This 136-nucleotide RNA from Camponotus floridanus belongs to the Rfam family "Small Cajal body specific RNA 8". The source organism's lineage runs through Eukaryota, Ecdysozoa, Insecta, Pterygota and Camponotus. Rfam's curators write: scaRNAs are a specific class of small nuclear RNAs which localise to the Cajal bodies and guide the modification of RNA polymerase II transcribed spliceosomal RNAs U1, U2, U4, U5 and U12. U92 belong to the H/ACA box class of guide RNAs as it has the predicted hairpin-hinge-hairpin-tail structure, conserved H/ACA-box motifs and is found associated with GAR1. For this family Rfam cites "RNomics: an experimental approach that identifies 201 candidates for novel, small, non-messenger RNAs in mouse" (Huttenhofer et al., EMBO J, 2001).
RNA sequence: CGGGAGAUAGAUGCACGAGUUUUUACAAAAUAAAAAUUACUCGUCACUUAAUCCUUCCAAAAACAAUUAUUAAAUGCCUUUUGAUGACUGUAAUUUGUGAAGUAUUAAUUUACAGACAGAUACGGGGCGUACAUUU
Numbered sequence: 001c002g003g004g005a006g007a008u009a010g011a012u013g014c015a016c017g018a019g020u021u022u023u024u025a026c027a028a029a030a031u032a033a034a035a036a037u038u039a040c041u042c043g044u045c046a047c048u049u050a051a052u053c054c055u056u057c058c059a060a061a062a063a064c065a066a067u068u069a070u071u072a073a074a075u076g077c078c079u080u081u082u083g084a085u086g087a088c089u090g091u092a093a094u095u096u097g098u099g100a101a102g103u104a105u106u107a108a109u110u111u112a113c114a115g116a117c118a119g120a121u122a123c124g125g126g127g128c129g130u131a132c133a134u135u136u
Stems, first nucleotide, its partner, number of pairs: 002058005007052001015044004023036002074130007088115003093110001095107001